RNA sequence: AUACUUAGCAGGCCGGGGAGAUACAAUGAUCAUGAAGGUGGUUUUCCCAGGCUUAUCUAUUGCACUCUGGAUGUGCUCACCCCUACAGUUUCCCCAAAUGUGGGGAACUCAGCUGCACAAUUUAUGGUAGUGGGGGACUGCAUUCAUGCUCUCUUCUG
Numbered sequence: 001a002u003a004c005u006u007a008g009c010a011g012g013c014c015g016g017g018g019a020g021a022u023a024c025a026a027u028g029a030u031c032a033u034g035a036a037g038g039u040g041g042u043u044u045u046c047c048c049a050g051g052c053u054u055a056u057c058u059a060u061u062g063c064a065c066u067c068u069g070g071a072u073g074u075g076c077u078c079a080c081c082c083c084u085a086c087a088g089u090u091u092c093c094c095c096a097a098a099u100g101u102g103g104g105g106a107a108c109u110c111a112g113c114u115g116c117a118c119a120a121u122u123u124a125u126g127g128u129a130g131u132g133g134g135g136g137a138c139u140g141c142a143u144u145c146a147u148g149c150u151c152u153c154u155u156c157u158g
Stems, first nucleotide, its partner, number of pairs: 012116002015113001016048006023042002026039002050077003054073005088109001089107003093103002132157006140149003
A member of the RNA family "U1 spliceosomal RNA" from Mesocricetus auratus, 158 nucleotides long. It is annotated as a spliceosomal small nuclear RNA. Lineage of the source: Eukaryota > Chordata > Myomorpha > Muroidea > Mesocricetus. U1 is a small nuclear RNA (snRNA) component of the spliceosome (involved in pre-mRNA splicing). Its 5' end forms complementary base pairs with the 5' splice junction, thus defining the 5' donor site of an intron. There are significant differences in sequence and secondary structure between metazoan and yeast U1 snRNAs, the latter being much longer (568 nucleotides as compared to 164 nucleotides in human). Pairs were carried over by alignment from the consensus structure, which is taken from published work.